RNA sequence: GCUCUGUGAUGAACCCCAUGCGUGUCAUCUGAGCCUGGCUUCCCUGUCAUCUCAGCCCAUGUAGUGUUCUACUUCCCAGGGCUAUUGUCUGGCCUGGCAAGGGGGUCCCAGGCAGAGGAUCAGUCUUUGUCUUCUGAGAGC
Numbered sequence: 001g002c003u004c005u006g007u008g009a010u011g012a013a014c015c016c017c018a019u020g021c022g023u024g025u026c027a028u029c030u031g032a033g034c035c036u037g038g039c040u041u042c043c044c045u046g047u048c049a050u051c052u053c054a055g056c057c058c059a060u061g062u063a064g065u066g067u068u069c070u071a072c073u074u075c076c077c078a079g080g081g082c083u084a085u086u087g088u089c090u091g092g093c094c095u096g097g098c099a100a101g102g103g104g105g106u107c108c109c110a111g112g113c114a115g116a117g118g119a120u121c122a123g124u125c126u127u128u129g130u131c132u133u134c135u136g137a138g139a140g141c
Stems, first nucleotide, its partner, number of pairs: 001141004042103003045099005
Shown here is a 141-nucleotide RNA sequence from Tursiops truncatus, a member of the family "Small nucleolar RNA SNORD10". A reference for the family is Huttenhofer et al. (2001), "RNomics: an experimental approach that identifies 201 candidates for novel, small, non-messenger RNAs in mouse", EMBO J. It scores 123 bits against the family's covariance model. It is annotated as a C/D-box small nucleolar RNA.